[Rfam]
RNA sequence: GGCUGGUUUGAGUGCAGCGGUGUUUACAAAUAAUUAGUCACAACCAGUUACAGAUUUCUUUGUUCCUCUCCACGCACACUACUUCACUUGGCCAGACUUGA
Numbered sequence: 001g002g003c004u005g006g007u008u009u010g011a012g013u014g015c016a017g018c019g020g021u022g023u024u025u026a027c028a029a030a031u032a033a034u035u036a037g038u039c040a041c042a043a044c045c046a047g048u049u050a051c052a053g054a055u056u057u058c059u060u061u062g063u064u065c066c067u068c069u070c071c072a073c074g075c076a077c078a079c080u081a082c083u084u085c086a087c088u089u090g091g092c093c094a095g096a097c098u099u100g101a
Stems, first nucleotide, its partner, number of pairs: 001097001003095006010089002014085001016080002019077001022075001028064002032060002
RNA: Y RNA